[Rfam]
RNA sequence: GACAAGUUAAUAAUUAAAAAUGAACCUAUUGAUAAACAUAAACCAACAUUUAUGGUAGGGAAUCUUGAAUAGACUACUAUAAUAAUCAAGGAUACUUGAAAAAAAGUAGUUGAACAAAACAGUAAUGUUAGUUCUGAAGGGAGAGUACCCAAAGUCUAAGAGAUUGCACUUUUAUUAUCGUAGUAUAGCACAGGACGAGUGUCGGGGGAAUAAUAUAAAGUUAGCUGAAAGGCUUUCCUCUCCAAGUUAGUCGGAAACAGGUGGUGCUGUCGAAAACCUUGGAAAUACCAACAAUUCUCUUUGCGGUGAUGUCGAGAAAUCGGCUAUAAGACAUUCAAGGAACCUCCAAGUAGCAGAAAACGCAAGACCAAAAUAUUUUCUGAUUUAAAUUGGUAAAGGAUAUAAUAGUAUUUUAUCUUUAUAACAAAAUAUUGAGAAAGUAACUGUGAAAGGUGCGGAUAAUCAAUUCCGUCUGAGCUUUGGACUUUAGUCAGGGUAAGAAAGCAUAAAGGUAGCUCCUAUAUGCUCCCGCUUAUUCUCUCAGUAGUGUAAUAAUACUAAAGAUGAUAUAAAGUAAGUUGAGGAACUCGUUUUAGUUAUUAACUUGU
Numbered sequence: 001g002a003c004a005a006g007u008u009a010a011u012a013a014u015u016a017a018a019a020a021u022g023a024a025c026c027u028a029u030u031g032a033u034a035a036a037c038a039u040a041a042a043c044c045a046a047c048a049u050u051u052a053u054g055g056u057a058g059g060g061a062a063u064c065u066u067g068a069a070u071a072g073a074c075u076a077c078u079a080u081a082a083u084a085a086u087c088a089a090g091g092a093u094a095c096u097u098g099a100a101a102a103a104a105a106g107u108a109g110u111u112g113a114a115c116a117a118a119a120c121a122g123u124a125a126u127g128u129u130a131g132u133u134c135u136g137a138a139g140g141g142a143g144a145g146u147a148c149c150c151a152a153a154g155u156c157u158a159a160g161a162g163a164u165u166g167c168a169c170u171u172u173u174a175u176u177a178u179c180g181u182a183g184u185a186u187a188g189c190a191c192a193g194g195a196c197g198a199g200u201g202u203c204g205g206g207g208g209a210a211u212a213a214u215a216u217a218a219a220g221u222u223a224g225c226u227g228a229a230a231g232g233c234u235u236u237c238c239u240c241u242c243c244a245a246g247u248u249a250g251u252c253g254g255a256a257a258c259a260g261g262u263g264g265u266g267c268u269g270u271c272g273a274a275a276a277c278c279u280u281g282g283a284a285a286u287a288c289c290a291a292c293a294a295u296u297c298u299c300u301u302u303g304c305g306g307u308g309a310u311g312u313c314g315a316g317a318a319a320u321c322g323g324c325u326a327u328a329a330g331a332c333a334u335u336c337a338a339g340g341a342a343c344c345u346c347c348a349a350g351u352a353g354c355a356g357a358a359a360a361c362g363c364a365a366g367a368c369c370a371a372a373a374u375a376u377u378u379u380c381u382g383a384u385u386u387a388a389a390u391u392g393g394u395a396a397a398g399g400a401u402a403u404a405a406u407a408g409u410a411u412u413u414u415a416u417c418u419u420u421a422u423a424a425c426a427a428a429a430u431a432u433u434g435a436g437a438a439a440g441u442a443a444c445u446g447u448g449a450a451a452g453g454u455g456c457g458g459a460u461a462a463u464c465a466a467u468u469c470c471g472u473c474u475g476a477g478c479u480u481u482g483g484a485c486u487u488u489a490g491u492c493a494g495g496g497u498a499a500g501a502a503a504g505c506a507u508a509a510a511g512g513u514a515g516c517u518c519c520u521a522u523a524u525g526c527u528c529c530c531g532c533u534u535a536u537u538c539u540c541u542c543a544g545u546a547g548u549g550u551a552a553u554a555a556u557a558c559u560a561a562a563g564a565u566g567a568u569a570u571a572a573a574g575u576a577a578g579u580u581g582a583g584g585a586a587c588u589c590g591u592u593u594u595a596g597u598u599a600u601u602a603a604c605u606u607g608u
Base pairs, nucleotide, nucleotide: 012600018594019593020592025059026058027057028056029055038053039052040051041050042049061165062164063163064162065161066160075109078106083102086099087098088097089096090095110136112134113133114132115131118129119128120127121126139150140149141148173569174568175567176566177565178564179563183559193344194343197336198335199334200333201332202331203330204300205299206298207297208296209295223234224233225232226231241283242282243281244280245279246278251273252272253271254270258269259268260267262290263289264288265287301365302364303363304362305361311324312323313322314321315320347452353447354446355445356444433531434530436528458470474543475542476541477492483491494540495539496538498536500534501533504527506524507523508522510520511519512518577588578587579586580585